Overview: This 93-nucleotide RNA from Leptothrix cholodnii belongs to the Rfam family "Glycine riboswitch aptamer".

RNA sequence: CGAGCGGCAUCGGGAGAGUCCGCGUGCCACCCGCGCGGCGCCGAAGGAGCAACCGCCCCGGAAACUCUCAGGCAAACGGACCGAUGCCGUGGA
Numbered sequence: 001c002g003a004g005c006g007g008c009a010u011c012g013g014g015a016g017a018g019u020c021c022g023c024g025u026g027c028c029a030c031c032c033g034c035g036c037g038g039c040g041c042c043g044a045a046g047g048a049g050c051a052a053c054c055g056c057c058c059c060g061g062a063a064a065c066u067c068u069c070a071g072g073c074a075a076a077c078g079g080a081c082c083g084a085u086g087c088c089g090u091g092g093a
Stems, first nucleotide, its partner, number of pairs: 006088008020038004040073003043069002047067003053061002

It scores 71 bits against the family's covariance model.
Pairs were carried over by alignment from the consensus structure.